[Rfam]
RNA sequence: GGGCCCAUGAAAUCAAGCGUGGGUGAGACCUGGUAAGAAGAGGAAGGCGACCCAUACUUGGUUUCAGAGGCCG
Numbered sequence: 001g002g003g004c005c006c007a008u009g010a011a012a013u014c015a016a017g018c019g020u021g022g023g024u025g026a027g028a029c030c031u032g033g034u035a036a037g038a039a040g041a042g043g044a045a046g047g048c049g050a051c052c053c054a055u056a057c058u059u060g061g062u063u064u065c066a067g068a069g070g071c072c073g
Stems, first nucleotide, its partner, number of pairs: 002072004009065006016058002021053004029047003